Shown here is a 102-nucleotide sequence from Melopsittacus undulatus, a member of the family "Small nucleolar RNA SNORD125". Its Rfam clan is "SNORD61 clan". By type it is a C/D-box small nucleolar RNA.

RNA sequence: GGCUGGACCAGCCUCUGUGAUGACCCUGCUCUCUGAUGGCUCUGGUGGUGAUGAGCAUCAAACCAAAGCCUCUAAGAAGUUGGCUGAAGAGGCUGUUGUCAG
Numbered sequence: 001g002g003c004u005g006g007a008c009c010a011g012c013c014u015c016u017g018u019g020a021u022g023a024c025c026c027u028g029c030u031c032u033c034u035g036a037u038g039g040c041u042c043u044g045g046u047g048g049u050g051a052u053g054a055g056c057a058u059c060a061a062a063c064c065a066a067a068g069c070c071u072c073u074a075a076g077a078a079g080u081u082g083g084c085u086g087a088a089g090a091g092g093c094u095g096u097u098g099u100c101a102g
Stems, first nucleotide, its partner, number of pairs: 007097001009095007